[Rfam]
RNA sequence: GGAGGGGGAAGGGGGAGGGGGGAGGGGGGGAGGAGGGGAGGGGGUAUGUCUUCCUCCCCUCCUCCUCCCCCCCCUCCUCCUCCCCCU
Numbered sequence: 001g002g003a004g005g006g007g008g009a010a011g012g013g014g015g016a017g018g019g020g021g022g023a024g025g026g027g028g029g030g031a032g033g034a035g036g037g038g039a040g041g042g043g044g045u046a047u048g049u050c051u052u053c054c055u056c057c058c059c060u061c062c063u064c065c066u067c068c069c070c071c072c073c074c075u076c077c078u079c080c081u082c083c084c085c086c087u
Stems, first nucleotide, its partner, number of pairs: 004083006012077002015074001017072010028061001036058007043050002